The family of this 111-nucleotide RNA from Brachypodium distachyon is "MIR5185 microRNA precursor family". Taxonomically the source falls in Brachypodium (Eukaryota, Viridiplantae, Tracheophyta, Liliopsida).
[Rfam]
RNA sequence: GAUCCCGUGAAAGUCCCGCUUCUAGUUCAUUUUUCAAAUCUUCUAUUCAAAAUUUUGUUCAGAAUUUGAAUAAGAGAUUUGAGAAUUGAACUAGAAGCGGGACUUUCGCGG
Numbered sequence: 001g002a003u004c005c006c007g008u009g010a011a012a013g014u015c016c017c018g019c020u021u022c023u024a025g026u027u028c029a030u031u032u033u034u035c036a037a038a039u040c041u042u043c044u045a046u047u048c049a050a051a052a053u054u055u056u057g058u059u060c061a062g063a064a065u066u067u068g069a070a071u072a073a074g075a076g077a078u079u080u081g082a083g084a085a086u087u088g089a090a091c092u093a094g095a096a097g098c099g100g101g102a103c104u105u106u107c108g109c110g111g
Base pairs, nucleotide, nucleotide: 008108009107010106011105012104013103014102015101016100017099018098019097020096021095022094023093024092025091026090027089028088029087031085032084033083034082035081036080037079038078039077040076041075042074044072045071046070047069048068049067050066051065053064054063055062056061